Source information: The record is a 107-nucleotide RNA sequence from Ectobacillus ponti, which matches "SAM riboswitch aptamer (S box leader)" in Rfam. For this family Rfam cites "The S box regulon: a new global transcription termination control system for methionine and cysteine biosynthesis genes in gram-positive bacteria" (Grundy and Henkin, Mol Microbiol, 1998). Rfam's curators write: The SAM riboswitch is found upstream of a number of genes which code for proteins involved in methionine or cysteine biosynthesis in Gram-positive bacteria.
[Rfam]
RNA sequence: UCCUUAUCAAGAGAGGCGGAGGGACUAGGCCCUGUGAAGCCCGGCAACCACUGUAAGACAGAAUGGUGCCAAAUCCAGAAGAACAUGUUUUGUUCUGAAGAUGAGGG
Numbered sequence: 001u002c003c004u005u006a007u008c009a010a011g012a013g014a015g016g017c018g019g020a021g022g023g024a025c026u027a028g029g030c031c032c033u034g035u036g037a038a039g040c041c042c043g044g045c046a047a048c049c050a051c052u053g054u055a056a057g058a059c060a061g062a063a064u065g066g067u068g069c070c071a072a073a074u075c076c077a078g079a080a081g082a083a084c085a086u087g088u089u090u091u092g093u094u095c096u097g098a099a100g101a102u103g104a105g106g107g
Stems, first nucleotide, its partner, number of pairs: 001107008013042001015041003021032003026078001028076002043070004048066002051061003074099001080096006